Rfam assigns this 143-nucleotide RNA from Oryzicola mucosus to the family "Alphaproteobacterial sRNA BjrC1505". The match comes from Rfam's covariance-model search (77 bits). The source organism's lineage runs through Bacteria, Pseudomonadati, Pseudomonadota, Alphaproteobacteria and Oryzicola. The literature on the family includes a 2012 paper in RNA Biol by Madhugiri et al., "Small RNAs of the Bradyrhizobium/Rhodopseudomonas lineage and their analysis".
RNA sequence: GCUUCGAUUAACCCGCCAUUAAGCUUUACAGGUGUUUACUAACGGCAUCCAGUUUUCUGGAUUCUUACCGAGUGGUUGGAGCCACUUUGUUUGACGCCUCCCUGUUAAACUCCUGAGAGCCGCUUCGUUGCGGCUCUUUUUUU
Dot-bracket structure: (.(..(......).(......(.((....)).)...)...).)...((((........)))).......((((((......)))))).....((((......))))........(((((((((......))))))))).....
Numbered sequence: 001g002c003u004u005c006g007a008u009u010a011a012c013c014c015g016c017c018a019u020u021a022a023g024c025u026u027u028a029c030a031g032g033u034g035u036u037u038a039c040u041a042a043c044g045g046c047a048u049c050c051a052g053u054u055u056u057c058u059g060g061a062u063u064c065u066u067a068c069c070g071a072g073u074g075g076u077u078g079g080a081g082c083c084a085c086u087u088u089g090u091u092u093g094a095c096g097c098c099u100c101c102c103u104g105u106u107a108a109a110c111u112c113c114u115g116a117g118a119g120c121c122g123c124u125u126c127g128u129u130g131c132g133g134c135u136c137u138u139u140u141u142u143u
Stems, first nucleotide, its partner, number of pairs: 001043001003041001006013001015037001022033001024031002047062004070087006093106004115138009